[Rfam]
Rfam assigns this 109-nucleotide RNA sequence from Sorghum bicolor to the family "MIR5565 microRNA precursor family". It scores 116 bits against the family's covariance model. Its family is annotated with RISC complex and miRNA-mediated post-transcriptional gene silencing in the Gene Ontology. The family has 7 seed sequences and 3,346 matches in Rfam 15.1.
RNA sequence: GUAGUUGGAUUCGCAUCAAUCCACAUGUGUUAGGGUGGAUUGGAGUGGAACUUGAACUAAAUUCCACCCCAAUCUGCUCCAACACAUGUGGAUUGACGUGAAUCCGACA
Numbered sequence: 001g002u003a004g005u006u007g008g009a010u011u012c013g014c015a016u017c018a019a020u021c022c023a024c025a026u027g028u029g030u031u032a033g034g035g036u037g038g039a040u041u042g043g044a045g046u047g048g049a050a051c052u053u054g055a056a057c058u059a060a061a062u063u064c065c066a067c068c069c070c071a072a073u074c075u076g077c078u079c080c081a082a083c084a085c086a087u088g089u090g091g092a093u094u095g096a097c098g099u100g101a102a103u104c105c106g107a108c109a
Base pairs, nucleotide, nucleotide: 004108005107006106007105008104009103010102011101012100013099014098016096017095018094019093020092021091022090023089024088025087026086027085028084029083030082031081035077036076037075038074039073040072041071042070043069045067046066047065